[Rfam]
The family of this 52-nucleotide RNA from Leitneria floridana is "Plastid-ccsA-ndhD-1 3UTR RNA". Plastid-ccsA-ndhD-1 is a non-coding RNA (ncRNA) recognised in plastids. It was found in the three prime untranslated region (3UTR) of ccsA and ndhD genes, its 3UTR location suggests a role in transcript maturation. Rfam classes the family as a cis-regulatory element. For this family Rfam cites "Retrograde signaling in plants: A critical review focusing on the GUN pathway and beyond" (Richter et al., Plant Commun, 2023). Clan: Plastid-ccsA_ndhD 3UTR RNA clan. Rfam 15.1 lists 1,322 matches to the family in 557 species.

RNA sequence: CGAGAACCUUUUGAAUCAAGCAGUGUGGUGAUUCAAAAGGUUCUUACAAACG
Numbered sequence: 001c002g003a004g005a006a007c008c009u010u011u012u013g014a015a016u017c018a019a020g021c022a023g024u025g026u027g028g029u030g031a032u033u034c035a036a037a038a039g040g041u042u043c044u045u046a047c048a049a050a051c052g
Stems, first nucleotide, its partner, number of pairs: 002045017